[Rfam]
RNA sequence: GAGUAAAGGGUUCUAGUGAUGCCCGUCUAGAACCCCAACAGUCUGGCACUCAGCCGGAUAUUGUAAAAAGGGCGUUUC
Numbered sequence: 001g002a003g004u005a006a007a008g009g010g011u012u013c014u015a016g017u018g019a020u021g022c023c024c025g026u027c028u029a030g031a032a033c034c035c036c037a038a039c040a041g042u043c044u045g046g047c048a049c050u051c052a053g054c055c056g057g058a059u060a061u062u063g064u065a066a067a068a069a070g071g072g073c074g075u076u077u078c
Stems, first nucleotide, its partner, number of pairs: 008035009020074005037064001040061001043057002046055001
The record is a 78-nucleotide RNA sequence from Deltacoronavirus gallinulae, which matches "Coronavirus frameshifting stimulation element" in Rfam. Rfam describes the family as follows. This family represents a conserved stem-loop found in Coronaviruses which can promote ribosomal frameshifting. This family interacts with a downstream region to form a pseudoknot structure, the region varies according to the virus but pseudoknot formation is known to stimulate frameshifting.